[Rfam]
RNA sequence: GAGUGCCGCUGGAGCGCCGCCUUUGGCGGCCCCGUGAAAGUCGGCCCCCCGGCUUAA
Number, nucleotide and partner (000 for none) at each position: 001g000002a000003g000004u000005g045006c044007c043008g042009c000010u040011g000012g000013a000014g000015c000016g030017c029018c028019g027020c026021c025022u000023u000024u000025g021026g020027c019028g018029g017030c016031c000032c000033c000034g000035u000036g000037a000038a000039a000040g010041u000042c008043g007044g006045c005046c000047c000048c000049c000050c000051g000052g000053c000054u000055u000056a000057a000
RNA: Pyrobaculum sRNA 204